[Rfam]
RNA sequence: GAAGCGAUGAUGAGUUUAGAUUAGAGGUGUGGGCAGCAGCGAGUGGUAUCAAUCAUCUCGCCGCGAGCCUUUCCCCAUUAUUAAACGACUUUUUCCUUGCACUGAGCUCC
Numbered sequence: 001g002a003a004g005c006g007a008u009g010a011u012g013a014g015u016u017u018a019g020a021u022u023a024g025a026g027g028u029g030u031g032g033g034c035a036g037c038a039g040c041g042a043g044u045g046g047u048a049u050c051a052a053u054c055a056u057c058u059c060g061c062c063g064c065g066a067g068c069c070u071u072u073c074c075c076c077a078u079u080a081u082u083a084a085a086c087g088a089c090u091u092u093u094u095c096c097u098u099g100c101a102c103u104g105a106g107c108u109c110c
Base pairs, nucleotide, nucleotide: 001110003108004107005106

The family of this 110-nucleotide RNA sequence from Phoenix dactylifera is "Small nucleolar RNA Z152/R70/R12/". A reference for the family is Barneche et al. (2001), "Identification of 66 box C/D snoRNAs in Arabidopsis thaliana: extensive gene duplications generated multiple isoforms predicting new ribosomal RNA 2'-O-methylation sites", J Mol Biol. By type it is a C/D-box small nucleolar RNA. The match comes from Rfam's covariance-model search (54 bits). Rfam 15.1 lists 604 matches to the family in 220 species.